Molybdenum/Tungsten riboswitch aptamer (Moco RNA motif): a 120-nucleotide sequence from Pelotomaculum isophthalicicum. Taxonomically the source falls in Pelotomaculum isophthalicicum (Bacteria, Eubacteriales, Desulfotomaculaceae, Pelotomaculum). Pairs were carried over by alignment from the consensus structure, which is taken from published work. Gene Ontology terms of the family: molybdenum ion binding, regulation of gene expression and tungstate binding.
RNA sequence: CUUUAUACUACUCUCCGAGCCUAAAGACCUAAAGCUUUUGAGCCAUGGUUUUCGGCCGGCAGGGCGUACCGGGAAACCAGUAUACCUUCCAUUGCGAGAAGGAGAGUUUUGACCUGGCUG
Number, nucleotide and partner (000 for none) at each position: 001c000002u000003u000004u000005a000006u111007a000008c000009u000010a000011c106012u105013c104014u103015c102016c101017g000018a000019g056020c055021c054022u000023a052024a051025a050026g000027a049028c048029c047030u000031a000032a000033a000034g043035c042036u041037u000038u000039u000040g000041a036042g035043c034044c000045a000046u000047g029048g028049u027050u025051u024052u023053c000054g021055g020056c019057c000058g000059g000060c000061a000062g087063g086064g085065c000066g083067u082068a081069c080070c000071g078072g077073g000074a000075a000076a000077c072078c071079a000080g069081u068082a067083u066084a000085c064086c063087u062088u097089c096090c000091a000092u000093u000094g000095c000096g089097a088098g000099a000100a000101g016102g015103a014104g013105a012106g011107u000108u000109u000110u000111g006112a000113c000114c000115u000116g000117g000118c000119u000120g000